[Rfam]
RNA: Small nucleolar RNA J33
Organism: Cucumis sativus
RNA sequence: CUGUGAGAGGAAUGAUGUAUUAUUAUCGAGCUCUCAAAAUGCUGGCAUAUUUGGAUUCUGCUUCUGAGAUGGACAUUAGGG
Numbered sequence: 001c002u003g004u005g006a007g008a009g010g011a012a013u014g015a016u017g018u019a020u021u022a023u024u025a026u027c028g029a030g031c032u033c034u035c036a037a038a039a040u041g042c043u044g045g046c047a048u049a050u051u052u053g054g055a056u057u058c059u060g061c062u063u064c065u066g067a068g069a070u071g072g073a074c075a076u077u078a079g080g081g
Stems, first nucleotide, its partner, number of pairs: 001081002004078003